[Rfam]
RNA sequence: CCUUUUUAUAAAGCGCCUGAACUGCCCGAUGCGGCAGUUGACGAGGAGGAGGUUAUCGAUUGUUUUCGGCGGAUGCCUCCCGGUUGCCGGCCACAACCGUAAUGAUAGACCAAACCAGUGAGGCGACUCACUGAACAAACGUUUAUCAGCUGGCUUGA
Number, nucleotide and partner (000 for none) at each position: 001c000002c000003u000004u000005u000006u000007u000008a000009u000010a000011a000012a000013g000014c000015g000016c000017c000018u000019g000020a039021a038022c037023u036024g035025c034026c033027c000028g000029a000030u000031g000032c000033g026034g025035c024036a023037g022038u021039u020040g000041a000042c000043g000044a000045g000046g000047a000048g080049g079050a078051g077052g076053u000054u000055a000056u069057c068058g067059a066060u000061u000062g000063u000064u000065u000066u059067c058068g057069g056070c000071g000072g000073a000074u000075g000076c052077c051078u050079c049080c048081c099082g098083g097084u096085u095086g094087c000088c000089g000090g000091c000092c000093a000094c086095a085096a084097c083098c082099g081100u000101a000102a000103u148104g147105a146106u145107a144108g143109a142110c000111c000112a000113a000114a000115c000116c133117a132118g131119u130120g129121a128122g127123g000124c000125g000126a000127c122128u121129c120130a119131c118132u117133g116134a000135a000136c000137a000138a000139a000140c000141g000142u109143u108144u107145a106146u105147c104148a103149g000150c000151u000152g000153g000154c000155u000156u000157g000158a000
A member of the RNA family "glmS glucosamine-6-phosphate activated ribozyme aptamer" from Alkalicoccus urumqiensis, 158 nucleotides long. It scores 111 bits against the family's covariance model. The family's consensus secondary structure is taken from published work. By type it is a riboswitch. Lineage of the source: Bacteria > Bacillota > Caryophanales > Bacillaceae > Alkalicoccus.